MIR390 microRNA precursor family: a 115-nucleotide RNA from Helianthus annuus. Rfam links the family to the GO terms miRNA-mediated post-transcriptional gene silencing and RISC complex.
RNA sequence: GAAAAGAAUCUGUAAAGCUCAGGAGGGAUAGCGCCUAUAUAUGGCAUGUAUGCAUACUUUUACGUAUGGUGUCUAUCAAAGGCGCUGUCUAUCCUGAGCCUCACGGCUUCUUUUU
Numbered sequence: 001g002a003a004a005a006g007a008a009u010c011u012g013u014a015a016a017g018c019u020c021a022g023g024a025g026g027g028a029u030a031g032c033g034c035c036u037a038u039a040u041a042u043g044g045c046a047u048g049u050a051u052g053c054a055u056a057c058u059u060u061u062a063c064g065u066a067u068g069g070u071g072u073c074u075a076u077c078a079a080a081g082g083c084g085c086u087g088u089c090u091a092u093c094c095u096g097a098g099c100c101u102c103a104c105g106g107c108u109u110c111u112u113u114u115u
Stems, first nucleotide, its partner, number of pairs: 010106001017099008026090010